RNA sequence: UUUUAAAAUUUUCUAUCUAUUUGUACGGUUAAAAACUGGCAUGAUUGAUCAGCUAGACAAUAACACGUGGCAUGCUAUGUAAACCGCAUGCUGCCGCAUAAAAACUAAUUUUUAAUAGUAGAAAUGGAUGAAACUUUUAACA
Number, nucleotide and partner (000 for none) at each position: 001u000002u000003u140004u139005a138006a137007a136008a135009u000010u133011u132012u131013c130014u000015a129016u128017c127018u000019a125020u124021u123022u122023g000024u120025a119026c118027g000028g000029u115030u114031a113032a112033a111034a110035a000036c000037u000038g000039g000040c000041a000042u000043g000044a000045u000046u000047g000048a000049u000050c000051a000052g000053c000054u000055a000056g000057a000058c000059a000060a000061u000062a000063a000064c000065a000066c000067g000068u000069g000070g000071c000072a000073u000074g000075c000076u000077a000078u000079g000080u000081a000082a000083a000084c000085c000086g000087c000088a000089u000090g000091c000092u000093g000094c000095c000096g000097c000098a000099u000100a000101a000102a000103a000104a000105c000106u000107a000108a000109u000110u034111u033112u032113u031114a030115a029116u000117a000118g026119u025120a024121g000122a022123a021124a020125u019126g000127g017128a016129u015130g013131a012132a011133a010134c000135u008136u007137u006138u005139a004140a003141c000142a000